Source information: A member of the RNA family "Plastid-ycf2 5UTR RNA" from Hevea brasiliensis, 76 nucleotides long.
RNA sequence: ACACAUCCAAGUGGGAAUUGAACCUACAUAUUUGCCAAUUAUGAAUUGAGUGAUUUAACCAUUCAGACAAGGAUGC
Number, nucleotide and partner (000 for none) at each position: 001a000002c000003a000004c075005a074006u073007c072008c071009a000010a000011g027012u026013g025014g024015g023016a000017a000018u000019u000020g000021a000022a000023c015024c014025u013026a012027c011028a000029u000030a000031u000032u000033u000034g000035c000036c000037a000038a000039u000040u000041a000042u069043g068044a000045a000046u066047u065048g064049a063050g062051u061052g060053a000054u000055u000056u000057a000058a000059c000060c052061a051062u050063u049064c048065a047066g046067a000068c043069a042070a000071g008072g007073a006074u005075g004076c000
NCBI's taxonomy places the organism under Eukaryota, Mesangiospermae, eudicotyledons, Pentapetalae, Hevea. For this family Rfam cites "Retrograde signaling in plants: A critical review focusing on the GUN pathway and beyond" (Richter et al., Plant Commun, 2023). The base pairs follow the family's consensus structure, which was predicted with LocARNA. By type it is a cis-regulatory element. It scores 66 bits against the family's covariance model.